[Rfam]
RNA sequence: GUUUCUGUAGUGUAGUGGUUAUCACGUUUGCCUCACAGGCAAAAGGUCCCUGGUUCAAUACCAGGCAGAAACA
Numbered sequence: 001g002u003u004u005c006u007g008u009a010g011u012g013u014a015g016u017g018g019u020u021a022u023c024a025c026g027u028u029u030g031c032c033u034c035a036c037a038g039g040c041a042a043a044a045g046g047u048c049c050c051u052g053g054u055u056c057a058a059u060a061c062c063a064g065g066c067a068g069a070a071a072c073a
Base pairs, nucleotide, nucleotide: 001072002071003070004069005068006067007066010025011024012023027043028042029041030040031039049065050064051063052062053061

The family of this 73-nucleotide RNA sequence from Microcaecilia unicolor is "tRNA". Pairs were carried over by alignment from the consensus structure, which is taken from published work. The family is grouped with related families in Rfam's "tRNA clan". The family's RNA type in Rfam is transfer RNA. Gene Ontology term of the family: triplet codon-amino acid adaptor activity.